RNA sequence: AGGCUGUGAAGCAGUGGGUUGGGUCGGUAUUAGUCGAUUGCAGAGCCAGACCGUGGGUUGUGCGGGUACAAUAAGCCGAAUAAGCGGCGGAAAUGCUGCUGAAAGAAAACGCAAAAA
Numbered sequence: 001a002g003g004c005u006g007u008g009a010a011g012c013a014g015u016g017g018g019u020u021g022g023g024u025c026g027g028u029a030u031u032a033g034u035c036g037a038u039u040g041c042a043g044a045g046c047c048a049g050a051c052c053g054u055g056g057g058u059u060g061u062g063c064g065g066g067u068a069c070a071a072u073a074a075g076c077c078g079a080a081u082a083a084g085c086g087g088c089g090g091a092a093a094u095g096c097u098g099c100u101g102a103a104a105g106a107a108a109a110c111g112c113a114a115a116a117a
Stems, first nucleotide, its partner, number of pairs: 002047003011041005017035005024079004062112003083100007

Rfam assigns this 117-nucleotide RNA to the family "drum RNA".
From the family's description: Firmicutes, Bacteroidetes (1 example), Proteobacteria (2 examples), Spirochaetes (2 examples).
The family's RNA type in Rfam is small RNA.